[Rfam]
RNA: mir-83 microRNA precursor family
Organism: Caenorhabditis bovis
RNA sequence: CUCUUGGAAGCCCUGAAUUUAUAUGCGUACUUGACGAGAAUCCAAGAUUUGUCUAGCACCAUAUAAAUUCAGAAUUUUCGAAG
Numbered sequence: 001c002u003c004u005u006g007g008a009a010g011c012c013c014u015g016a017a018u019u020u021a022u023a024u025g026c027g028u029a030c031u032u033g034a035c036g037a038g039a040a041u042c043c044a045a046g047a048u049u050u051g052u053c054u055a056g057c058a059c060c061a062u063a064u065a066a067a068u069u070c071a072g073a074a075u076u077u078u079c080g081a082a083g
Base pairs, nucleotide, nucleotide: 013072014071015070016069017068018067019066020065021064022063024061025060027059028058030056031055033053034052035051036050